The family of this 111-nucleotide sequence from Caldisalinibacter kiritimatiensis is "TPP riboswitch aptamer (THI element)". Rfam links the family to the GO term thiamine pyrophosphate binding. The match comes from Rfam's covariance-model search (63 bits).
RNA sequence: GAAUAUACGCUGGGGAGCUGGAUGAAUCCGGCUGAGAGGGGACUGUUAUUGUACCGACCCACAUAACCUGAACUAGGUAAUACUAGCGAAGGGAGCAGUUUGACUUAAGUG
Numbered sequence: 001g002a003a004u005a006u007a008c009g010c011u012g013g014g015g016a017g018c019u020g021g022a023u024g025a026a027u028c029c030g031g032c033u034g035a036g037a038g039g040g041g042a043c044u045g046u047u048a049u050u051g052u053a054c055c056g057a058c059c060c061a062c063a064u065a066a067c068c069u070g071a072a073c074u075a076g077g078u079a080a081u082a083c084u085a086g087c088g089a090a091g092g093g094a095g096c097a098g099u100u101u102g103a104c105u106u107a108a109g110u111g
Stems, first nucleotide, its partner, number of pairs: 009096002011061004017032005039055002042052002067092003073086004